[Rfam]
RNA sequence: AACUUGCCCUUAACCCGGGAUUAAGCAUCCAGGCGCAUCACUGUGGACGUCCAGUUUCUGGACGUCGAGUGGCUCCUUUCCACUCUGUUUGACGCCUCCCUGUUGACACUCCGGAGCCGCUCCAAGCGGCUCCUUUUUU
Dot-bracket structure: .((..(........).((...(..((......))..)))...))....((((.......))))...((((((.......)))))).....((((......))))........(((((((((...)))))))))......
Numbered sequence: 001a002a003c004u005u006g007c008c009c010u011u012a013a014c015c016c017g018g019g020a021u022u023a024a025g026c027a028u029c030c031a032g033g034c035g036c037a038u039c040a041c042u043g044u045g046g047a048c049g050u051c052c053a054g055u056u057u058c059u060g061g062a063c064g065u066c067g068a069g070u071g072g073c074u075c076c077u078u079u080c081c082a083c084u085c086u087g088u089u090u091g092a093c094g095c096c097u098c099c100c101u102g103u104u105g106a107c108a109c110u111c112c113g114g115a116g117c118c119g120c121u122c123c124a125a126g127c128g129g130c131u132c133c134u135u136u137u138u139u
Stems, first nucleotide, its partner, number of pairs: 002044002006015001017039002022037001025034002049063004067085006091104004113133009
The family of this 139-nucleotide sequence from Blastochloris viridis is "Alphaproteobacterial sRNA BjrC1505".
The family's RNA type in Rfam is small RNA.
The base pairs follow the family's consensus structure.
On this family, see Madhugiri et al., RNA Biol 2012: "Small RNAs of the Bradyrhizobium/Rhodopseudomonas lineage and their analysis".
The match comes from Rfam's covariance-model search (95 bits).
Taxonomically the source falls in Blastochloris (Bacteria, Pseudomonadati, Pseudomonadota, Alphaproteobacteria).